[Rfam]
RNA sequence: GGCCCAAAUUUGAAGUAGAGAAAGUUAGAAGUAUCAGCUGACCCUACUAAUCUACUCUACGUCAAGUUUGUGCCC
Numbered sequence: 001g002g003c004c005c006a007a008a009u010u011u012g013a014a015g016u017a018g019a020g021a022a023a024g025u026u027a028g029a030a031g032u033a034u035c036a037g038c039u040g041a042c043c044c045u046a047c048u049a050a051u052c053u054a055c056u057c058u059a060c061g062u063c064a065a066g067u068u069u070g071u072g073c074c075c
Base pairs, nucleotide, nucleotide: 001074002073003072005070006069007068008067009066011064012063013062015060016059017058018057019056020055022053025050026049027048028047030045034041035040
The record is a 75-nucleotide sequence from Haemonchus placei, which matches "mir-5928 microRNA precursor family" in Rfam. A search with the family's covariance model found it, with a score of 61 bits. Pairs were carried over by alignment from the consensus structure, which was predicted with RNAalifold. Lineage of the source: Eukaryota > Metazoa > Eumetazoa > Rhabditida > Haemonchus.